pemK RNA: a 61-nucleotide RNA sequence. The family's RNA type in Rfam is cis-regulatory element. Rfam's curators put it in the seed alignment.
RNA sequence: ACAAUGAUACUUCCGUAAUUCGCGGCCCGGCUAUAAUGCAGGCGGGGGUAGAUUUUAAUGG
Number, nucleotide and partner (000 for none) at each position: 001a000002c000003a000004a000005u000006g000007a000008u000009a000010c000011u000012u058013c025014c024015g023016u022017a000018a000019u000020u000021c000022g016023c015024g014025g013026c047027c046028c045029g000030g043031c042032u041033a000034u000035a000036a000037u000038g000039c000040a000041g032042g031043c030044g000045g028046g027047g026048g000049u000050a000051g000052a000053u000054u000055u000056u000057a000058a012059u000060g000061g000